The record is a 135-nucleotide RNA from Panthera leo, which matches "Small nucleolar RNA SNORA17" in Rfam. It is annotated as an H/ACA-box small nucleolar RNA. Clan: SNORA17 clan. A reference for the family is Ofengand and Bakin (1997), "Mapping to nucleotide resolution of pseudouridine residues in large subunit ribosomal RNAs from representative eukaryotes, prokaryotes, archaebacteria, mitochondria and chloroplasts", J Mol Biol. snoRNA ACA 17 belongs to the H/ACA family of snoRNAs and is predicted to guide pseudouridylation of the 28S rRNA at positions U4659 and U4598.
RNA sequence: GAUGCACCAAGAGGCAUCGCAGGUGUGGCUGCUUUUGUGUCACAUUUGUGUCAUUAGGUAACAGAAAGGAAAAGUGGCUUAUCCAGGCCCAGUGUUCUGGCUGGUGAAUAUCUGAAUGAUUAAUAGAUUGACACU
Numbered sequence: 001g002a003u004g005c006a007c008c009a010a011g012a013g014g015c016a017u018c019g020c021a022g023g024u025g026u027g028g029c030u031g032c033u034u035u036u037g038u039g040u041c042a043c044a045u046u047u048g049u050g051u052c053a054u055u056a057g058g059u060a061a062c063a064g065a066a067a068g069g070a071a072a073a074g075u076g077g078c079u080u081a082u083c084c085a086g087g088c089c090c091a092g093u094g095u096u097c098u099g100g101c102u103g104g105u106g107a108a109u110a111u112c113u114g115a116a117u118g119a120u121u122a123a124u125a126g127a128u129u130g131a132c133a134c135u
Stems, first nucleotide, its partner, number of pairs: 003063002007058002010055002013052003019049004024044006076128001078126002080123001087117001090114003093110005